[Rfam]
RNA: Guanidine-I riboswitch aptamer
RNA sequence: GUGGGGCGCACCUAGGGUUCCGUUCGGCUGGUCCGAGAGGUGCAGGCGGCCGGCGACGGCCGUUCCACGGCGGGACAAAAGCCCGGGAGGC
Numbered sequence: 001g002u003g004g005g006g007c008g009c010a011c012c013u014a015g016g017g018u019u020c021c022g023u024u025c026g027g028c029u030g031g032u033c034c035g036a037g038a039g040g041u042g043c044a045g046g047c048g049g050c051c052g053g054c055g056a057c058g059g060c061c062g063u064u065c066c067a068c069g070g071c072g073g074g075a076c077a078a079a080a081g082c083c084c085g086g087g088a089g090g091c
Stems, first nucleotide, its partner, number of pairs: 008043005015034002020031002022028001045064008066086001068089001072084003